[Rfam]
RNA: Y RNA
Organism: Pan troglodytes
RNA sequence: GCCCAGUCCACUGGUAAUGGGUUAUCAGAACAUAUUAAUAUUAGAGUCACUGAAGUUGCUAUACAACCCCCUACUGCUAAAUUUGACUGGUUUUUU
Numbered sequence: 001g002c003c004c005a006g007u008c009c010a011c012u013g014g015u016a017a018u019g020g021g022u023u024a025u026c027a028g029a030a031c032a033u034a035u036u037a038a039u040a041u042u043a044g045a046g047u048c049a050c051u052g053a054a055g056u057u058g059c060u061a062u063a064c065a066a067c068c069c070c071c072u073a074c075u076g077c078u079a080a081a082u083u084u085g086a087c088u089g090g091u092u093u094u095u096u
Stems, first nucleotide, its partner, number of pairs: 001092001003090006010084001015079001016075001018073004033061002037057002